Description: A member of the RNA family "drz-agam-2-2 ribozyme" from Anopheles gambiae, 195 nucleotides long. The organism belongs to Anopheles gambiae, within Eukaryota. Rfam links the family to the GO term catalytic activity. Pairs were carried over by alignment from the consensus structure, which is taken from published work.
RNA sequence: ACCACCAAAUUAUCUGCAAAUGGGGUAAGAUCCGACACCUCCUUGAAGGUUAAUAUAGGCUCUCUUACUCAACUCCUAUCCUGCGACGUCCGUUUCGUGCAGUGGUAACAUGUAUCAUCGUAUAUCCAAGCUUGGGUAGACGGGCCCAGUCCCAACCCCUUGGGCGGAUGAUGGUAAAUGGCCAACCAAGAGGGG
Numbered sequence: 001a002c003c004a005c006c007a008a009a010u011u012a013u014c015u016g017c018a019a020a021u022g023g024g025g026u027a028a029g030a031u032c033c034g035a036c037a038c039c040u041c042c043u044u045g046a047a048g049g050u051u052a053a054u055a056u057a058g059g060c061u062c063u064c065u066u067a068c069u070c071a072a073c074u075c076c077u078a079u080c081c082u083g084c085g086a087c088g089u090c091c092g093u094u095u096c097g098u099g100c101a102g103u104g105g106u107a108a109c110a111u112g113u114a115u116c117a118u119c120g121u122a123u124a125u126c127c128a129a130g131c132u133u134g135g136g137u138a139g140a141c142g143g144g145c146c147c148a149g150u151c152c153c154a155a156c157c158c159c160u161u162g163g164g165c166g167g168a169u170g171a172u173g174g175u176a177a178a179u180g181g182c183c184a185a186c187c188a189a190g191a192g193g194g195g
Stems, first nucleotide, its partner, number of pairs: 014102004023070008032059002074195004079191002082189001085186001086098003090105002109180003113176002116173004124169004132155005157164002